[Rfam]
RNA sequence: UGGGAAAGCUAAGCAAUCGCUGUUUUUAAUGAUUUAAACAGAGGAAAGUCUGGACUUCAUAGGAAAAGAUACCAGUGAAAGACUGGGGGCCGCAAGGCUACGGAAAGUAUAACAGAAAACACACCGCCCUUUUUUUUAAAGGGGACAGGCUGAAAAUGCUAACUUUAAGAGUUAGCCCCACUCUCAGAGAUGAGAGGUGAGAUAAACCCUAUCUGAAGCAAGAAAGUAAUGAGCGUUGUUUUUAGACAAUCUGUUUUUCCGCAGAGCUCAUUAGAAUAAAAUCGCUUGAGGGAUUUGGCAACAAAUCUCCUAGAUGAAUGAUUGCUCAACGACAGAAUCCGGCUUAAAUAGCUUUCCCGGCUU
Numbered sequence: 001u002g003g004g005a006a007a008g009c010u011a012a013g014c015a016a017u018c019g020c021u022g023u024u025u026u027u028a029a030u031g032a033u034u035u036a037a038a039c040a041g042a043g044g045a046a047a048g049u050c051u052g053g054a055c056u057u058c059a060u061a062g063g064a065a066a067a068g069a070u071a072c073c074a075g076u077g078a079a080a081g082a083c084u085g086g087g088g089g090c091c092g093c094a095a096g097g098c099u100a101c102g103g104a105a106a107g108u109a110u111a112a113c114a115g116a117a118a119a120c121a122c123a124c125c126g127c128c129c130u131u132u133u134u135u136u137u138a139a140a141g142g143g144g145a146c147a148g149g150c151u152g153a154a155a156a157u158g159c160u161a162a163c164u165u166u167a168a169g170a171g172u173u174a175g176c177c178c179c180a181c182u183c184u185c186a187g188a189g190a191u192g193a194g195a196g197g198u199g200a201g202a203u204a205a206a207c208c209c210u211a212u213c214u215g216a217a218g219c220a221a222g223a224a225a226g227u228a229a230u231g232a233g234c235g236u237u238g239u240u241u242u243u244a245g246a247c248a249a250u251c252u253g254u255u256u257u258u259c260c261g262c263a264g265a266g267c268u269c270a271u272u273a274g275a276a277u278a279a280a281a282u283c284g285c286u287u288g289a290g291g292g293a294u295u296u297g298g299c300a301a302c303a304a305a306u307c308u309c310c311u312a313g314a315u316g317a318a319u320g321a322u323u324g325c326u327c328a329a330c331g332a333c334a335g336a337a338u339c340c341g342g343c344u345u346a347a348a349u350a351g352c353u354u355u356c357c358c359g360g361c362u363u
Stems, first nucleotide, its partner, number of pairs: 001359010012326007020041006028033001046345003050342005055218004062259004067214005072086005087101001088099004102209002107207002109203002124149002127144007158176005181196006222283002229271006250265005290309008

Overview:
A member of the RNA family "Bacterial RNase P class A" from Candidatus Rhabdochlamydia sp. T3358, 363 nucleotides long.